[Rfam]
RNA sequence: CGUCGCUGCCGCAUCUCAAGAGAGAGCGGCAGACCGGGGCCCUCCGCCCCGGACCGAAGAACAGAACAAGCGCUGGCCCCCCGCAAUUGGGCGCCAGCCCAACAAGAAAUUUCGGAUGUACGCAUGCGCCAGGAUGGCGCAUGAAAUCCC
Numbered sequence: 001c002g003u004c005g006c007u008g009c010c011g012c013a014u015c016u017c018a019a020g021a022g023a024g025a026g027c028g029g030c031a032g033a034c035c036g037g038g039g040c041c042c043u044c045c046g047c048c049c050c051g052g053a054c055c056g057a058a059g060a061a062c063a064g065a066a067c068a069a070g071c072g073c074u075g076g077c078c079c080c081c082c083g084c085a086a087u088u089g090g091g092c093g094c095c096a097g098c099c100c101a102a103c104a105a106g107a108a109a110u111u112u113c114g115g116a117u118g119u120a121c122g123c124a125u126g127c128g129c130c131a132g133g134a135u136g137g138c139g140c141a142u143g144a145a146a147u148c149c150c
Stems, first nucleotide, its partner, number of pairs: 006032007014025003034052007123143008
RNA: proV RNA
Organism: Pseudomonas sp. THAF187a